[Rfam]
RNA: Group II catalytic intron D1-D4-6
Organism: Bacillus thuringiensis
RNA sequence: AAAGUCCAAUCGGGGGAAUAGACUCCACUCCCGUAGCCUGAGAGGCGCCAUGAAGUGAAAGCGACAUGGCGAAGCCCUCUGACAUCACAUGCAAAAGGCAUGUGGGCAAAUCUCCAGGUUGUAACGUACAGUGAACGUAGAUGUAGCCUCGUUACACGCAAUUCCGGUGGCUGAGACGGUCGAUAACGUGCGAAAGCAGCAAGAACUGACCGAAACGAGUCUGGAACGGCAGUUCUCACCGGCGGGGUAUCAGCGGC
Numbered sequence: 001a002a003a004g005u006c007c008a009a010u011c012g013g014g015g016g017a018a019u020a021g022a023c024u025c026c027a028c029u030c031c032c033g034u035a036g037c038c039u040g041a042g043a044g045g046c047g048c049c050a051u052g053a054a055g056u057g058a059a060a061g062c063g064a065c066a067u068g069g070c071g072a073a074g075c076c077c078u079c080u081g082a083c084a085u086c087a088c089a090u091g092c093a094a095a096a097g098g099c100a101u102g103u104g105g106g107c108a109a110a111u112c113u114c115c116a117g118g119u120u121g122u123a124a125c126g127u128a129c130a131g132u133g134a135a136c137g138u139a140g141a142u143g144u145a146g147c148c149u150c151g152u153u154a155c156a157c158g159c160a161a162u163u164c165c166g167g168u169g170g171c172u173g174a175g176a177c178g179g180u181c182g183a184u185a186a187c188g189u190g191c192g193a194a195a196g197c198a199g200c201a202a203g204a205a206c207u208g209a210c211c212g213a214a215a216c217g218a219g220u221c222u223g224g225a226a227c228g229g230c231a232g233u234u235c236u237c238a239c240c241g242g243c244g245g246g247g248u249a250u251c252a253g254c255g256g257c
Stems, first nucleotide, its partner, number of pairs: 012030003015026003021220001034094001036092002040083001042079002044076002046071007055062002143251001144249001146248006164242006170197003175191001176189003202236007210224002